[Rfam]
Nucleotides: 070
Stems, first nucleotide, its partner, number of pairs: 011043005018032002021029002047066008
Number, partner (000 for none) and nucleotide at each position: 001000g002000a003000a004000g005000c006000g007000g008000g009000a010000a011043g012042c013041c014040g015039g016000c017000u018032c019031c020000c021029g022028c023000u024000c025000a026000u027000u028022g029021c030000c031019g032018g033000g034000u035000a036000a037000g038000a039015c040014c041013g042012g043011c044000a045000c046000c047066g048065u049064c050063g051062a052061u053060c054059c055000g056000u057000g058000a059054g060053g061052a062051u063050c064049g065048a066047c067000u068000g069000c070000c

The record is a 70-nucleotide sequence from Thermaerobacter subterraneus, which matches "Transposase-2 RNA" in Rfam.